[Rfam]
RNA sequence: CCGGCUCCGGUUCACCUCAGGCACACCGAGGACCCGGCGGCC
Numbered sequence: 001c002c003g004g005c006u007c008c009g010g011u012u013c014a015c016c017u018c019a020g021g022c023a024c025a026c027c028g029a030g031g032a033c034c035c036g037g038c039g040g041c042c
Stems, first nucleotide, its partner, number of pairs: 003042003007037004015031004020026001
RNA: L31-Actinobacteria ribosomal protein leader